Rfam assigns this 134-nucleotide RNA to the family "Group II catalytic intron D1-D4-4".
It scores 90 bits against the family's covariance model.
Rfam 15.1 lists 840 matches to the family in 506 species.
The base pairs follow the family's consensus structure.
RNA sequence: UUGCGGGUGAAAGUCCCGUCAUGGUAAAACAGAAAGCCAUGUAGCAUAUACCCAAUGCUGAAAGCGAUUUCAGUAUUGAAGCGGUAUGUAAAAACUCCAAUACUGGGGGAGCAAGUUAACAGUCCGUAACAUAA
Numbered sequence: 001u002u003g004c005g006g007g008u009g010a011a012a013g014u015c016c017c018g019u020c021a022u023g024g025u026a027a028a029a030c031a032g033a034a035a036g037c038c039a040u041g042u043a044g045c046a047u048a049u050a051c052c053c054a055a056u057g058c059u060g061a062a063a064g065c066g067a068u069u070u071c072a073g074u075a076u077u078g079a080a081g082c083g084g085u086a087u088g089u090a091a092a093a094a095c096u097c098c099a100a101u102a103c104u105g106g107g108g109g110a111g112c113a114a115g116u117u118a119a120c121a122g123u124c125c126g127u128a129a130c131a132u133a134a
Stems, first nucleotide, its partner, number of pairs: 020041005048087005053078006062069002095108005111127002